[Rfam]
RNA sequence: UGGCCUGAGAUGAUGUUCUGAGUUCAUGUCUCUUCUCUGAGAUGUCUUGUGGAGACAGCCAAAUUCAUUUCUGAUCAGGCUU
Number, nucleotide and partner (000 for none) at each position: 001u000002g081003g080004c079005c078006u000007g000008a000009g000010a000011u000012g000013a000014u000015g000016u000017u000018c000019u000020g000021a000022g000023u000024u000025c000026a000027u000028g000029u000030c000031u000032c000033u000034u000035c000036u000037c000038u000039g000040a000041g000042a000043u000044g000045u000046c000047u000048u000049g000050u000051g000052g000053a000054g000055a000056c000057a000058g000059c000060c000061a000062a000063a000064u000065u000066c000067a000068u000069u000070u000071c000072u000073g000074a000075u000076c000077a000078g005079g004080c003081u002082u000
RNA: Small nucleolar RNA SNORD111
Organism: Cyanistes caeruleus